[Rfam]
RNA sequence: GCGUCUUUAGCUCAGUUGGAUAGAGCAACGGCCUUCUAAGCCGUGUGCCAGGGGUUCGACUCCCUUAAGACGCA
Numbered sequence: 001g002c003g004u005c006u007u008u009a010g011c012u013c014a015g016u017u018g019g020a021u022a023g024a025g026c027a028a029c030g031g032c033c034u035u036c037u038a039a040g041c042c043g044u045g046u047g048c049c050a051g052g053g054g055u056u057c058g059a060c061u062c063c064c065u066u067a068a069g070a071c072g073c074a
Stems, first nucleotide, its partner, number of pairs: 001073007010026004028044005050066005
The family of this 74-nucleotide RNA sequence from Hathewaya histolytica is "tRNA".